[Rfam]
RNA sequence: UUGCAGAAGAACUAGGGUUCCGAUCAUUGGAUGCGCUCCAAUGGUGUCUGGUCCGAGAGUUCUCGGUCUUGUCGGAGACAAGGCUCCACGGAGGGAUAAAAGCCCGGGAGGA
Number, nucleotide and partner (000 for none) at each position: 001u000002u000003g000004c000005a000006g000007a000008a063009g062010a061011a060012c059013u000014a000015g054016g053017g000018u000019u000020c051021c050022g048023a045024u044025c043026a042027u041028u040029g039030g038031a037032u000033g000034c000035g000036c000037u031038c030039c029040a028041a027042u026043g025044g024045u023046g000047u000048c022049u000050g021051g020052u000053c016054c015055g000056a000057g000058a000059g012060u011061u010062c009063u008064c000065g085066g084067u083068c082069u081070u080071g079072u078073c000074g000075g000076a000077g000078a072079c071080a070081a069082g068083g067084c066085u065086c000087c107088a000089c110090g000091g000092a000093g105094g104095g103096a000097u000098a000099a000100a000101a000102g000103c095104c094105c093106g000107g087108g000109a000110g089111g000112a000
Overview:
Shown here is a 112-nucleotide sequence from Ferriphaselus amnicola, a member of the family "Guanidine-I riboswitch aptamer". NCBI's taxonomy places the organism under Bacteria, Pseudomonadati, Pseudomonadota, Gallionellaceae, Ferriphaselus.